[Rfam]
RNA sequence: GGUCAGUGAUGAACAGUAAAAGGUCUGAUUACCCACGAUCCUCUCCUGCUGCCCUCUGGCUCCCAGCAGCCCCUGCUCUCUGCUCCCAUCAUGCUCUAGUGAUGCAUUGAUGAUUCCAGGAGCUGCUGACAGACAGGAAGUGACAUCACAGAGUGAGUCUGUACAGAGAUCCUAUUGGCUCAGAGUGAUGACUGACAUCCAACAGAACCAAUCAGCACGGAGCGUCAGGCUGAGGAUGAGGAGGGAGCUGAUCUCAAGUUUUCAACCUGAGACC
Numbered sequence: 001g002g003u004c005a006g007u008g009a010u011g012a013a014c015a016g017u018a019a020a021a022g023g024u025c026u027g028a029u030u031a032c033c034c035a036c037g038a039u040c041c042u043c044u045c046c047u048g049c050u051g052c053c054c055u056c057u058g059g060c061u062c063c064c065a066g067c068a069g070c071c072c073c074u075g076c077u078c079u080c081u082g083c084u085c086c087c088a089u090c091a092u093g094c095u096c097u098a099g100u101g102a103u104g105c106a107u108u109g110a111u112g113a114u115u116c117c118a119g120g121a122g123c124u125g126c127u128g129a130c131a132g133a134c135a136g137g138a139a140g141u142g143a144c145a146u147c148a149c150a151g152a153g154u155g156a157g158u159c160u161g162u163a164c165a166g167a168g169a170u171c172c173u174a175u176u177g178g179c180u181c182a183g184a185g186u187g188a189u190g191a192c193u194g195a196c197a198u199c200c201a202a203c204a205g206a207a208c209c210a211a212u213c214a215g216c217a218c219g220g221a222g223c224g225u226c227a228g229g230c231u232g233a234g235g236a237u238g239a240g241g242a243g244g245g246a247g248c249u250g251a252u253c254u255c256a257a258g259u260u261u262u263c264a265a266c267c268u269g270a271g272a273c274c
Base pairs, nucleotide, nucleotide: 001274002273003272004271037253038252039251040250042236043235044234046232048230049229060222061221062220063219064128065127066126067125068124069123070122087112088111089110090109091108094104136200137199138198141197142196144194154182155181156180157179158178159177161175162174163173
Rfam assigns this 274-nucleotide sequence from Lates calcarifer to the family "Small Cajal body specific RNA 6". The organism belongs to Lates, within Eukaryota. About the family: U88 is small Cajal body specific RNA (scaRNA). scaRNAs are a novel class of small nuclear RNAs which localise to the Cajal bodies. U88 is found associated with both fibrillarin and Gar1p and co-localises with coilin in Cajal bodies. The match comes from Rfam's covariance-model search (107 bits). By type it is a small Cajal body RNA. Rfam links the family to the GO terms nucleolus and RNA processing.